RNA: c-di-AMP riboswitch aptamer (ydaO/yuaA leader)
RNA sequence: UCACGGGGGCCGGCGAACCUUGAUCUGAACGGGCGGGAGUGGGGAACCCAUCUCUGGAGCCUUGGCUCCUUGGGGUGAAGCCUUGCCGCACGAACAACGCGGCAGGCCGGGCACCUUCGGCCCGAACCCGACAGCUAACCCCACAGGCGUUGUGAAGGGACAA
Numbered sequence: 001u002c003a004c005g006g007g008g009g010c011c012g013g014c015g016a017a018c019c020u021u022g023a024u025c026u027g028a029a030c031g032g033g034c035g036g037g038a039g040u041g042g043g044g045a046a047c048c049c050a051u052c053u054c055u056g057g058a059g060c061c062u063u064g065g066c067u068c069c070u071u072g073g074g075g076u077g078a079a080g081c082c083u084u085g086c087c088g089c090a091c092g093a094a095c096a097a098c099g100c101g102g103c104a105g106g107c108c109g110g111g112c113a114c115c116u117u118c119g120g121c122c123c124g125a126a127c128c129c130g131a132c133a134g135c136u137a138a139c140c141c142c143a144c145a146g147g148c149g150u151u152g153u154g155a156a157g158g159g160a161c162a163a
Stems, first nucleotide, its partner, number of pairs: 001038002039144006049072002073129003081106003109123004